[Rfam]
Overview: The family of this 72-nucleotide sequence from Cnemophilus loriae is "nadA riboswitch". Rfam classes the family as a small RNA. A search with the family's covariance model found it, with a score of 39 bits. Pairs were carried over by alignment from the consensus structure, which is taken from published work. Taxonomically the source falls in Cnemophilus (Eukaryota, Vertebrata, Gnathostomata, Aves).

RNA sequence: GCCUCCAACAUCCCCGCCUGGAAGGCCACGAGUUAAUCCCCAGAACUCGCUGGGAUUGCUCAGGCUGGAGGU
Numbered sequence: 001g002c003c004u005c006c007a008a009c010a011u012c013c014c015c016g017c018c019u020g021g022a023a024g025g026c027c028a029c030g031a032g033u034u035a036a037u038c039c040c041c042a043g044a045a046c047u048c049g050c051u052g053g054g055a056u057u058g059c060u061c062a063g064g065c066u067g068g069a070g071g072u
Stems, first nucleotide, its partner, number of pairs: 001072007013058001016065006024057001026054002030050001033049001